The family of this 61-nucleotide sequence from Merluccius polli is "mir-155 microRNA precursor family".
A search with the family's covariance model found it, with a score of 57 bits.
Taxonomically the source falls in Merluccius (Eukaryota, Bilateria, Deuterostomia, Eurypterygia).
Rfam 15.1 lists 647 matches to the family in 617 species.
[Rfam]
RNA sequence: GGGUUAAUGCUAAUCGUGAUAGGGGUUCUCUUCAAGACGCCUAGCAUGCUAGCAUUAGCCU
Dot-bracket structure: ...(((((((((.(.....((((.(((........))).))))....).)))))))))...